A member of the RNA family "Betaproteobacteria toxic small RNA" from Diaphorobacter aerolatus, 64 nucleotides long. Rfam describes the family as follows. Overexpression in amino aid rich medium attenuates growth, suggesting role in repressing amino acid intake and metabolism. It scores 57 bits against the family's covariance model. For this family Rfam cites "A vast collection of microbial genes that are toxic to bacteria" (Kimelman et al., Genome Res, 2012).

RNA sequence: UGUCUCCUCCAUCUCCUCAAAGGAUGGAUUUGGCCCCAAGCUUCACGGCUAGGGGCCAUUUUUU
Numbered sequence: 001u002g003u004c005u006c007c008u009c010c011a012u013c014u015c016c017u018c019a020a021a022g023g024a025u026g027g028a029u030u031u032g033g034c035c036c037c038a039a040g041c042u043u044c045a046c047g048g049c050u051a052g053g054g055g056c057c058a059u060u061u062u063u064u
Stems, first nucleotide, its partner, number of pairs: 008028006032057006039050002

Source information: The source organism's lineage runs through Bacteria, Pseudomonadati, Betaproteobacteria, Burkholderiales and Diaphorobacter.